The record is a 115-nucleotide RNA from Medicago truncatula, which matches "MIR2593 microRNA precursor family" in Rfam. It scores 111 bits against the family's covariance model. The organism belongs to Medicago, within Eukaryota.
[Rfam]
RNA sequence: CUAUAAGCAAGACUUUGUAUUUUAGAUUCAUUUAUUUAAUGAUGUAUGUGGUCUUUAUUAUAGACCACAUACAUCAUUAAAUAAAUGAAUCUAAAAUGCAAAGUUUUGUUUAUAA
Numbered sequence: 001c002u003a004u005a006a007g008c009a010a011g012a013c014u015u016u017g018u019a020u021u022u023u024a025g026a027u028u029c030a031u032u033u034a035u036u037u038a039a040u041g042a043u044g045u046a047u048g049u050g051g052u053c054u055u056u057a058u059u060a061u062a063g064a065c066c067a068c069a070u071a072c073a074u075c076a077u078u079a080a081a082u083a084a085a086u087g088a089a090u091c092u093a094a095a096a097u098g099c100a101a102a103g104u105u106u107u108g109u110u111u112a113u114a115a
Stems, first nucleotide, its partner, number of pairs: 002114006009107005015101011027089018049067004
The family has 7 seed sequences and 1,262 matches in Rfam 15.1. The base pairs follow the family's consensus structure, which was predicted with RNAalifold.